[Rfam]
RNA: msiK RNA
RNA sequence: GACAUCCACCCUUUACUCGGAUCGUCCGGCACGUUCCUGCCGGUGAAGGAGAGCACA
Numbered sequence: 001g002a003c004a005u006c007c008a009c010c011c012u013u014u015a016c017u018c019g020g021a022u023c024g025u026c027c028g029g030c031a032c033g034u035u036c037c038u039g040c041c042g043g044u045g046a047a048g049g050a051g052a053g054c055a056c057a
Base pairs, nucleotide, nucleotide: 010049011048012047013046014045015044026043027042028041029040030039031038